[Rfam]
Annotation: A member of the RNA family "Burkholderia sRNA 11" from Pararobbsia alpina, 206 nucleotides long. A search with the family's covariance model found it, with a score of 63 bits. Identified by RNA-seq, RACE and Northern blot. Strongly expressed in biofilm. Identified in as ncRNA13. On this family, see Yoder-Himes et al., Proc Natl Acad Sci U S A 2009: "Mapping the Burkholderia cenocepacia niche response via high-throughput sequencing". By type it is a small RNA.
RNA sequence: UCACUUUUGCAAUGGGGGUGCCCGUGCGGAAGAGAAUGGCCGCUAUAUCUAGCGAGGCCAAUAGGGCAGACGGCGCCAACCGUGUCGACGACGGGCAACGCUGACGGAAACGGUGUAUGUACUCCUUCAGGUCACACACUGCUUUCGAGCCCGAAUGCGCCGUGUGCGCAAACACAAAGGCCCCCGCCUAGCGGGGGCCUUUACUU
Number, nucleotide and partner (000 for none) at each position: 001u000002c000003a000004c032005u031006u030007u029008u028009g027010c026011a000012a000013u000014g023015g022016g021017g000018g000019u000020g000021c016022c015023c014024g000025u000026g010027c009028g008029g007030a006031a005032g004033a000034g000035a000036a000037u000038g058039g000040c056041c054042g053043c052044u051045a000046u000047a000048u000049c000050u000051a044052g043053c042054g041055a000056g040057g000058c038059c000060a000061a000062u000063a000064g152065g151066g150067c149068a000069g000070a000071c000072g000073g101074c100075g099076c000077c000078a000079a000080c094081c093082g092083u091084g000085u000086c000087g000088a000089c000090g000091a083092c082093g081094g080095g000096c000097a000098a000099c075100g074101c073102u000103g000104a000105c147106g146107g145108a144109a143110a000111c000112g000113g000114u000115g000116u000117a000118u000119g000120u000121a000122c000123u000124c000125c000126u000127u000128c000129a000130g000131g000132u000133c000134a000135c000136a000137c000138a000139c000140u000141g000142c000143u109144u108145u107146c106147g105148a000149g067150c066151c065152c064153g000154a000155a000156u000157g169158c168159g167160c166161c000162g000163u000164g000165u000166g160167c159168g158169c157170a000171a000172a000173c000174a000175c000176a202177a201178a200179g199180g198181c197182c196183c195184c194185c193186g192187c191188c000189u000190a000191g187192c186193g185194g184195g183196g182197g181198c180199c179200u178201u177202u176203a000204c000205u000206u000